[Rfam]
RNA sequence: GUGUUUGUGGGUGGGGCAUCAUCAAGAUUCACAUGGAUUAAGACAACUCCGGUGGUUCUACAUGAGAAUCUUGAUGAUGCUGCAUCGGCAAACAA
Numbered sequence: 001g002u003g004u005u006u007g008u009g010g011g012u013g014g015g016g017c018a019u020c021a022u023c024a025a026g027a028u029u030c031a032c033a034u035g036g037a038u039u040a041a042g043a044c045a046a047c048u049c050c051g052g053u054g055g056u057u058c059u060a061c062a063u064g065a066g067a068a069u070c071u072u073g074a075u076g077a078u079g080c081u082g083c084a085u086c087g088g089c090a091a092a093c094a095a
Stems, first nucleotide, its partner, number of pairs: 010086004015081016032064004
A member of the RNA family "mir-172 microRNA precursor family" from Musa acuminata, 95 nucleotides long. The match comes from Rfam's covariance-model search (84 bits). Rfam links the family to the GO terms miRNA-mediated post-transcriptional gene silencing and RISC complex. Rfam describes the family as follows. mir-172 has been experimentally verified in Arabidopsis thaliana. This family is thought to target mRNAs coding for APETALA2-like transcription factors. The mature sequence is excised from the 3' arm of the hairpin. The source organism's lineage runs through Eukaryota, Embryophyta, Petrosaviidae, Musaceae and Musa acuminata.